mir-2567 microRNA precursor family: an 83-nucleotide sequence from Drosophila pseudoobscura. Its family is annotated with RISC complex and miRNA-mediated post-transcriptional gene silencing in the Gene Ontology. Lineage of the source: Eukaryota > Pancrustacea > Neoptera > Drosophilini > Sophophora. The family's consensus secondary structure was predicted with RNAalifold. Rfam 15.1 lists 15 matches to the family in 3 species.
RNA sequence: UUUUCAGUUUUUUACCAGGUUAGAUUUGCGAAACGUUGAAUUUAGGUCGUAUCACAAUUCUAGCCUGGCAAUUUUGCUUGAAA
Dot-bracket structure: ((((.(((...((.((((((((((.(((.((.(((............))).)).))).)))))))))).))....))).))))